A member of the RNA family "tRNA" from Butyricicoccus sp. TM10-16AC, 74 nucleotides long. Rfam links the family to the GO term triplet codon-amino acid adaptor activity.

RNA sequence: GGCCCGGUAGCUCAGUUGGUUAGAGCGCUAGCCUGUCACGCUAGAGGCCGUGGGUUCAAGUCCCAUCCGGGUCG
Numbered sequence: 001g002g003c004c005c006g007g008u009a010g011c012u013c014a015g016u017u018g019g020u021u022a023g024a025g026c027g028c029u030a031g032c033c034u035g036u037c038a039c040g041c042u043a044g045a046g047g048c049c050g051u052g053g054g055u056u057c058a059a060g061u062c063c064c065a066u067c068c069g070g071g072u073c074g
Stems, first nucleotide, its partner, number of pairs: 001073007010026004028044005050066005
Overview: The family's consensus secondary structure is taken from published work. Transfer RNA (tRNA) molecules are approximately 80 nucleotides in length. NCBI's taxonomy places the organism under Bacteria, Bacillati, Bacillota, Eubacteriales, Butyricicoccus.